[Rfam]
RNA sequence: AAAAAUGGCUUCUACCAUGAGCGGAAUAUAUAGGGCAGCUUAAUUGCUCUAUGUGUGGAAUCAACAUCAAGCAAUUUCAGAAACAUAAUUUUUUGGUACCUGGGAAGCUAGUGACCAUUUGUCCUGGUGCCUGC
Numbered sequence: 001a002a003a004a005a006u007g008g009c010u011u012c013u014a015c016c017a018u019g020a021g022c023g024g025a026a027u028a029u030a031u032a033g034g035g036c037a038g039c040u041u042a043a044u045u046g047c048u049c050u051a052u053g054u055g056u057g058g059a060a061u062c063a064a065c066a067u068c069a070a071g072c073a074a075u076u077u078c079a080g081a082a083a084c085a086u087a088a089u090u091u092u093u094u095g096g097u098a099c100c101u102g103g104g105a106a107g108c109u110a111g112u113g114a115c116c117a118u119u120u121g122u123c124c125u126g127g128u129g130c131c132u133g134c
Stems, first nucleotide, its partner, number of pairs: 008084001010082003013026001015024002027055012056079006102132003107128005113123003
Dot-bracket structure: .......(.((((.((......)).)((((((((((((.....))))))))))))((((((............))))))))).).................(((..(((((.(((.....)))))))).)))..
RNA: U11 spliceosomal RNA